[Rfam]
RNA sequence: CUCUUAUUGAGAGCGGCGGAGGGACGUGCCCGAUGAAGCCCGGCAACCGUCACGGAAACGUGAAAUGGUGCCAAAUCACUCAAAGCGCAAGCGCUUUGGCAGAUGAGAG
Number, nucleotide and partner (000 for none) at each position: 001c109002u108003c107004u106005u105006a104007u103008u102009g000010a000011g000012a000013g041014c000015g040016g039017c038018g000019g000020a000021g031022g030023g029024a000025c000026g079027u078028g077029c023030c022031c021032g000033a000034u000035g000036a000037a000038g017039c016040c015041c013042g072043g071044c070045a069046a000047c068048c067049g000050u063051c062052a061053c000054g000055g000056a000057a000058a000059c000060g000061u052062g051063a050064a000065a000066u000067g048068g047069u045070g044071c043072c042073a000074a000075a000076u101077c028078a027079c026080u000081c098082a097083a096084a095085g094086c093087g000088c000089a000090a000091g000092c000093g086094c085095u084096u083097u082098g081099g000100c000101a076102g008103a007104u006105g005106a004107g003108a002109g001
A member of the RNA family "SAM riboswitch aptamer (S box leader)" from Bhargavaea cecembensis, 109 nucleotides long. The source organism's lineage runs through Bacteria, Bacillota, Caryophanales, Bhargavaea and Bhargavaea cecembensis. Rfam links the family to the GO term regulation of gene expression.